[Rfam]
Nucleotides: 060
Stems, first nucleotide, its partner, number of pairs: 009051007027044006
Number, partner (000 for none) and nucleotide at each position: 001000u002000c003000c004000g005000c006000a007000c008000a009051c010050g011049u012048u013047u014046c015045a016000c017000a018000a019000c020000g021000g022000a023000c024000c025000g026000u027044c028043c029042g030041g031040c032039a033000c034000g035000a036000a037000c038000c039032u040031g041030c042029c043028g044027g045015u046014g047013a048012a049011a050010c051009g052000a053000a054000a055000g056000g057000a058000c059000c060000a